[Rfam]
RNA sequence: ACCCCCUGGUAACUGGGCAAAGAGGCUCCUUAAACGGUGGUGCCUUCCUUAUAUCUAGCAGGGGGACAGCAGUCUCUCCCUAUUCAUCCCAGCACAGCGUCUUUUCUCGUGGCUGUUUGCUGGUUCAUGCUGGGGAAACAAAC
Numbered sequence: 001a002c003c004c005c006c007u008g009g010u011a012a013c014u015g016g017g018c019a020a021a022g023a024g025g026c027u028c029c030u031u032a033a034a035c036g037g038u039g040g041u042g043c044c045u046u047c048c049u050u051a052u053a054u055c056u057a058g059c060a061g062g063g064g065g066a067c068a069g070c071a072g073u074c075u076c077u078c079c080c081u082a083u084u085c086a087u088c089c090c091a092g093c094a095c096a097g098c099g100u101c102u103u104u105u106c107u108c109g110u111g112g113c114u115g116u117u118u119g120c121u122g123g124u125u126c127a128u129g130c131u132g133g134g135g136a137a138a139c140a141a142a143c
Stems, first nucleotide, its partner, number of pairs: 002065007015055002020050003024044003028040002081138001083136003096131003102127001106123001108122002112118001
The family of this 143-nucleotide sequence from Phrynocephalus forsythii is "Small nucleolar RNA SNORA48". It scores 53 bits against the family's covariance model. Rfam classes the family as an H/ACA-box small nucleolar RNA. Pairs were carried over by alignment from the consensus structure, which was predicted with RNAalifold. The snoRNA ACA 48 has been identified to guide pseudouridylation of the residue U3797 in the 28S rRNA subunit. On this family, see Ofengand and Bakin, J Mol Biol 1997: "Mapping to nucleotide resolution of pseudouridine residues in large subunit ribosomal RNAs from representative eukaryotes, prokaryotes, archaebacteria, mitochondria and chloroplasts". Gene Ontology terms of the family: nucleolus and RNA processing.